FMN riboswitch aptamer (RFN element): a 158-nucleotide sequence from Variovorax sp. Sphag1AA.

RNA sequence: AAGCGUUCUCAGGGCGGGGCGAAAUUCCCCACCGGCGGUCAUGGCGGCGAAAGUCGCACGAGCCCGCGAGCGCCCGUGGCGUGCAAUGCGUCGCGGGGUCAGCAGACCCGGUGUGAUUCCGGGGCCGACGGUCACAGUCCGGAUGAAAGAGAGCGCGA
Numbered sequence: 001a002a003g004c005g006u007u008c009u010c011a012g013g014g015c016g017g018g019g020c021g022a023a024a025u026u027c028c029c030c031a032c033c034g035g036c037g038g039u040c041a042u043g044g045c046g047g048c049g050a051a052a053g054u055c056g057c058a059c060g061a062g063c064c065c066g067c068g069a070g071c072g073c074c075c076g077u078g079g080c081g082u083g084c085a086a087u088g089c090g091u092c093g094c095g096g097g098g099u100c101a102g103c104a105g106a107c108c109c110g111g112u113g114u115g116a117u118u119c120c121g122g123g124g125c126c127g128a129c130g131g132u133c134a135c136a137g138u139c140c141g142g143a144u145g146a147a148a149g150a151g152a153g154c155g156c157g158a
Stems, first nucleotide, its partner, number of pairs: 003156008017029003031138002033127002035067004062125002070103002107123005129141003
The base pairs follow the family's consensus structure, which is taken from published work. A search with the family's covariance model found it, with a score of 108 bits.